[Rfam]
Description
This 110-nucleotide RNA from Agromyces sp. NDB4Y10 belongs to the Rfam family "TPP riboswitch aptamer (THI element)". Lineage of the source: Bacteria > Actinomycetes > Micrococcales > Microbacteriaceae > Agromyces.
RNA sequence: GUGGUCGAACACGGGAGUCCGGUGAGCCGGGCUGAGAGGAAGGUUCUCAACCUUCGACCGUCGAACCUGAUCUGGGUCAUGCCAGCGCAGGGAGGGCAGAGAUUCUCAUC
Numbered sequence: 001g002u003g004g005u006c007g008a009a010c011a012c013g014g015g016a017g018u019c020c021g022g023u024g025a026g027c028c029g030g031g032c033u034g035a036g037a038g039g040a041a042g043g044u045u046c047u048c049a050a051c052c053u054u055c056g057a058c059c060g061u062c063g064a065a066c067c068u069g070a071u072c073u074g075g076g077u078c079a080u081g082c083c084a085g086c087g088c089a090g091g092g093a094g095g096g097c098a099g100a101g102a103u104u105c106u107c108a109u110c
Base pairs, nucleotide, nucleotide: 007097010094011061012060013059014058017032018031019030020029021028039055040054041053042052043051044050045049066091067090068089069088072085073084074083075082